[Rfam]
RNA sequence: GCUGUGGUGAGAUAUGUUUGAUAUAUUUGGUGAGUGAAAUCAAGUCCCACCAAAUAUCAGACAUGUCAACACUACGGC
Numbered sequence: 001g002c003u004g005u006g007g008u009g010a011g012a013u014a015u016g017u018u019u020g021a022u023a024u025a026u027u028u029g030g031u032g033a034g035u036g037a038a039a040u041c042a043a044g045u046c047c048c049a050c051c052a053a054a055u056a057u058c059a060g061a062c063a064u065g066u067c068a069a070c071a072c073u074a075c076g077g078c
Base pairs, nucleotide, nucleotide: 005074006073007072008071009070011067012066013065014064015063016062017061018060019059020058021057022056023055024054029051030050031049032048034047
Dot-bracket structure: ....(((((.((((((((((((((....((((.(............)))))..))))))))))))))..)))))....
This 78-nucleotide RNA from Magallana gigas belongs to the Rfam family "mir-190 microRNA precursor family". The family has 76 seed sequences and 1,667 matches in Rfam 15.1. For this family Rfam cites "Cloning and expression of new microRNAs from zebrafish" (Kloosterman et al., Nucleic Acids Res, 2006). Lineage of the source: Eukaryota > Bivalvia > Ostreida > Ostreidae > Magallana.